[Rfam]
RNA sequence: UCCGGUGCGGCUGAUGACAGCACUGCUGCUGAGACUCUGUGAUUGCUCAAAGUAAACGCGCUGACGCACUGUGG
Numbered sequence: 001u002c003c004g005g006u007g008c009g010g011c012u013g014a015u016g017a018c019a020g021c022a023c024u025g026c027u028g029c030u031g032a033g034a035c036u037c038u039g040u041g042a043u044u045g046c047u048c049a050a051a052g053u054a055a056a057c058g059c060g061c062u063g064a065c066g067c068a069c070u071g072u073g074g
Base pairs, nucleotide, nucleotide: 005069006068007067008066009065010021011020012019013018030049031048032047033046